[Rfam]
RNA sequence: GAAGUCGGUGAUCCACGAGGUCCCUAAAAGAACCAGGAGAAAGAACUCCCCUCCCACCCGCCUGUCAACCUCGCGCCAAUUCCACACUCCAUCGGGCGACUUGGGGGUGGGGCGGGCUUCCGCUGGGGCUAAGCUCGCCGCGACAACCCGAAACUGACUCGGCCCCCGCAGGGACUAGCGAUCCCAGGCGAGGGCCUGACCGUCCAGGAAGCAGAACCUUCCCG
Number, nucleotide and partner (000 for none) at each position: 001g201002a000003a000004g000005u000006c000007g058008g057009u056010g055011a000012u000013c000014c000015a000016c000017g000018a000019g000020g000021u000022c000023c000024c000025u000026a000027a000028a000029a000030g000031a000032a000033c000034c000035a000036g000037g000038a000039g000040a000041a000042a000043g000044a000045a000046c000047u000048c000049c000050c000051c000052u000053c000054c000055c010056a009057c008058c007059c000060g000061c000062c000063u000064g000065u000066c000067a000068a000069c000070c000071u000072c000073g000074c000075g000076c000077c000078a000079a000080u000081u000082c000083c000084a000085c000086a000087c000088u000089c000090c000091a000092u000093c000094g000095g139096g138097c137098g136099a135100c000101u000102u000103g000104g000105g000106g000107g000108u000109g000110g000111g000112g000113c000114g000115g000116g000117c000118u000119u000120c000121c000122g000123c000124u000125g000126g000127g000128g000129c000130u000131a000132a000133g000134c000135u099136c098137g097138c096139c095140g000141c000142g000143a000144c000145a000146a000147c000148c000149c000150g000151a000152a000153a000154c000155u000156g000157a000158c000159u000160c000161g196162g195163c194164c193165c192166c000167c190168g189169c188170a000171g185172g184173g183174a182175c000176u000177a000178g000179c000180g000181a000182u174183c173184c172185c171186a000187g000188g169189c168190g167191a000192g165193g164194g163195c162196c161197u000198g000199a000200c000201c001202g000203u000204c000205c000206a000207g222208g221209a220210a219211g218212c000213a000214g000215a000216a000217c000218c211219u210220u209221c208222c207223c000224g000